Rfam assigns this 121-nucleotide sequence from Streptomyces violaceusniger to the family "Streptomyces-metH RNA". Taxonomically the source falls in Streptomyces violaceusniger (Bacteria, Actinomycetota, Kitasatosporales, Streptomycetaceae).
RNA sequence: CCAUCCCGGCUGAUGGAACGACCAUCGUCAAAUGACCACUGGCAGCUACCCUGGCGUGGUGCGCCGUCCCCAGGGAGGGCGCAAAGCCGACAGCCGUCGCACUCCAGGGAGCACAUCCAUG
Numbered sequence: 001c002c003a004u005c006c007c008g009g010c011u012g013a014u015g016g017a018a019c020g021a022c023c024a025u026c027g028u029c030a031a032a033u034g035a036c037c038a039c040u041g042g043c044a045g046c047u048a049c050c051c052u053g054g055c056g057u058g059g060u061g062c063g064c065c066g067u068c069c070c071c072a073g074g075g076a077g078g079g080c081g082c083a084a085a086g087c088c089g090a091c092a093g094c095c096g097u098c099g100c101a102c103u104c105c106a107g108g109g110a111g112c113a114c115a116u117c118c119a120u121g
Base pairs, nucleotide, nucleotide: 060083061082062081063080067076068075086100087099089098090097091096